[Rfam]
RNA: Enterococcus sRNA 1300
Organism: Desulfitobacterium dichloroeliminans
Nucleotides: 202
Stems, first nucleotide, its partner, number of pairs: 003087001005085007015078008026069007033060001035059002042057005088142001097132001099131004103125006162195004167190002170187003173183004
Number, partner (000 for none) and nucleotide at each position: 001000a002000u003087u004000c005085c006084g007083u008082u009081c010080g011079u012000a013000u014000u015078c016077g017076g018075u019074a020073a021072g022071u023000a024000a025000c026069c027068a028067g029066c030065a031064a032063a033060a034000g035059g036058c037000a038000u039000u040000a041000u042057c043056c044055c045054a046053u047000u048000c049000c050000g051000a052000a053046g054045u055044g056043g057042g058036g059035c060033u061000u062000u063032u064031u065030u066029g067028u068027u069026g070000u071022g072021c073020u074019u075018a076017u077016c078015g079011g080010c081009g082008g083007a084006u085005g086000a087003a088142g089000a090000c091000a092000u093000g094000g095000u096000a097132a098000g099131g100130a101129a102128a103125g104124g105123g106122a107121a108120g109000c110000u111000c112000a113000a114000g115000g116000g117000a118000g119000u120108u121107u122106u123105c124104c125103c126000a127000a128102u129101u130100u131099c132097u133000g134000u135000u136000g137000g138000u139000g140000u141000c142088u143000u144000u145000a146000u147000a148000u149000c150000a151000c152000g153000u154000u155000g156000a157000a158000g159000c160000c161000u162195a163194c164193a165192g166000g167190c168189u169000a170187a171186a172185g173183u174182c175181a176180a177000a178000u179000u180176u181175u182174g183173g184000a185172c186171u187170u188000u189168a190167g191000c192165c193164u194163g195162u196000u197000u198000u199000u200000u201000g202000u